[Rfam]
RNA sequence: UUUACCUUUCUCUCAUCACACACAUACAUCGUCACAUGGUUUGGGGUGCUUCGUUAUGCGAGGUCAAGUCAUGGGAUGUAUGGAGGAUUAAC
Numbered sequence: 001u002u003u004a005c006c007u008u009u010c011u012c013u014c015a016u017c018a019c020a021c022a023c024a025u026a027c028a029u030c031g032u033c034a035c036a037u038g039g040u041u042u043g044g045g046g047u048g049c050u051u052c053g054u055u056a057u058g059c060g061a062g063g064u065c066a067a068g069u070c071a072u073g074g075g076a077u078g079u080a081u082g083g084a085g086g087a088u089u090a091a092c
Stems, first nucleotide, its partner, number of pairs: 023082008035073009048064005
Dot-bracket structure: ......................((((((((....(((((((((....(((((.......)))))))))))))).))))))))..........

A member of the RNA family "t44 RNA" from Thioflexithrix psekupsensis, 92 nucleotides long. A reference for the family is Tjaden et al. (2002), "Transcriptome analysis of Escherichia coli using high-density oligonucleotide probe arrays", Nucleic Acids Res. By type it is a small RNA.